[Rfam]
RNA sequence: GCCACACUCUCGGGGGGCCAAAUGACAGGCUGAGACGUUCAUUAGAACAGACCCGUAGAACCUGACCCGGUUAGUACCGGCGUAGGGAAGAGUUGCUGGUCUGUU
Numbered sequence: 001g002c003c004a005c006a007c008u009c010u011c012g013g014g015g016g017g018c019c020a021a022a023u024g025a026c027a028g029g030c031u032g033a034g035a036c037g038u039u040c041a042u043u044a045g046a047a048c049a050g051a052c053c054c055g056u057a058g059a060a061c062c063u064g065a066c067c068c069g070g071u072u073a074g075u076a077c078c079g080g081c082g083u084a085g086g087g088a089a090g091a092g093u094u095g096c097u098g099g100u101c102u103g104u105u
Base pairs, nucleotide, nucleotide: 006093007092008091009090010089011055012054013053014052017030018029019028037048038047039046040045061086062085063084064083067080068079069078070077
RNA: TPP riboswitch aptamer (THI element)